Small nucleolar RNA snR191: a 275-nucleotide RNA from Henningerozyma blattae. By type it is an H/ACA-box small nucleolar RNA.
[Rfam]
Nucleotides: 275
Stems, first nucleotide, its partner, number of pairs: 003078004019065010030043004089190006097138007110124005144176005152168007192269004197264004207255005214248003220238007
Number, partner (000 for none) and nucleotide at each position: 001000a002000a003078c004077c005076a006075a007000a008000a009000c010000u011000c012000u013000u014000u015000g016000u017000c018000a019065g020064g021063g022062u023061g024060u025059a026058u027057c028056u029000a030043c031042a032041g033040u034000u035000u036000u037000u038000a039000u040033g041032c042031u043030g044000a045000a046000a047000u048000u049000c050000u051000u052000c053000a054000a055000a056028a057027g058026a059025u060024a061023u062022g063021u064020c065019u066000g067000u068000u069000a070000c071000a072000g073000u074000c075006u076005u077004g078003g079000a080000a081000a082000a083000u084000u085000a086000a087000u088000a089190c090189u091188a092187u093186u094185c095000g096000c097138u098137g099136c100135g101134u102133u103132u104000c105000a106000a107000a108000c109000c110124g111123u112122u113121u114120c115000g116000u117000u118000c119000u120114g121113a122112a123111a124110c125000a126000a127000u128000a129000u130000c131000u132103g133102a134101a135100u136099g137098c138097a139000u140000u141000u142000u143000a144176g145175a146174a147173g148172g149000a150000c151000a152168a153167c154166c155165u156164u157163u158162g159000u160000u161000u162158u163157a164156a165155a166154g167153g168152u169000a170000u171000a172148c173147c174146u175145u176144c177000g178000c179000c180000u181000u182000u183000u184000a185094g186093a187092a188091u189090a190089g191000g192269a193268g194267g195266g196000a197264u198263u199262u200261u201000a202000u203000g204000a205000g206000u207255u208254g209253a210252c211251a212000u213000u214248a215247u216246a217000a218000c219000u220238g221237a222236u223235a224234u225233a226232g227000c228000u229000a230000u231000u232226c233225u234224a235223u236222a237221u238220c239000c240000u241000u242000a243000u244000a245000c246216u247215a248214u249000a250000a251211u252210g253209u254208c255207g256000u257000a258000g259000u260000a261200a262199a263198a264197a265000a266195c267194c268193c269192u270000a271000c272000a273000a274000c275000c
The family is grouped with related families in Rfam's "SNORA74 clan". For this family Rfam cites "A snoRNA that guides the two most conserved pseudouridine modifications within rRNA confers a growth advantage in yeast" (Badis et al., RNA, 2003). Gene Ontology terms of the family: nucleolus and RNA processing. The base pairs follow the family's consensus structure, which was predicted with WAR.